RNA sequence: CUUCUGCAGAGCCACCGCAGUAGAAACCUGCAAAACAAGAGGCCUCUUGUUUUGCAGGCUUCUACUGCGGUGGCUCUGCAGAAG
Numbered sequence: 001c002u003u004c005u006g007c008a009g010a011g012c013c014a015c016c017g018c019a020g021u022a023g024a025a026a027c028c029u030g031c032a033a034a035a036c037a038a039g040a041g042g043c044c045u046c047u048u049g050u051u052u053u054g055c056a057g058g059c060u061u062c063u064a065c066u067g068c069g070g071u072g073g074c075u076c077u078g079c080a081g082a083a084g
Base pairs, nucleotide, nucleotide: 003082004081005080006079007078009076010075011074012073013072014071015070016069017068018067019066020065021064022063023062024061025060027058028057029056030055031054032053033052034051035050
Dot-bracket structure: ..(((((.(((((((((((((((((.(((((((((..............))))))))).))))))))))))))))).)))))..
A member of the RNA family "mir-4524 microRNA precursor family" from Ibidorhyncha struthersii, 84 nucleotides long. Its family is annotated with miRNA-mediated post-transcriptional gene silencing and RISC complex in the Gene Ontology.